[Rfam]
RNA: mir-1684 microRNA precursor family
Organism: Armadillidium nasatum
RNA sequence: GCUUUCGAAGGGAUAGCCACCCUUCCUCUUUCAGGCUCUAGUUAAACUAGAGCCUGAAAGAGGAAGGGUGGCUAUCCCUUCGAAAGC
Dot-bracket structure: .((..((.(((((((((((((.((((((((((.((.((((.......)))).)).)))))))))).))))))))))))).))..)).